[Rfam]
RNA sequence: CUUCACCGACCCGAGCCACAACGGCUCCGCCCGAUCCUGCCCGUACGUCGCCUGCAACGCCCGCGCCUC
Number, nucleotide and partner (000 for none) at each position: 001c000002u000003u000004c000005a000006c000007c000008g000009a000010c000011c000012c000013g000014a026015g025016c024017c023018a000019c000020a000021a000022c000023g017024g016025c015026u014027c000028c065029g064030c063031c000032c059033g058034a000035u000036c000037c054038u000039g052040c000041c050042c000043g048044u000045a000046c000047g000048u043049c000050g041051c000052c039053u000054g037055c000056a000057a000058c033059g032060c000061c000062c000063g030064c029065g028066c000067c000068u000069c000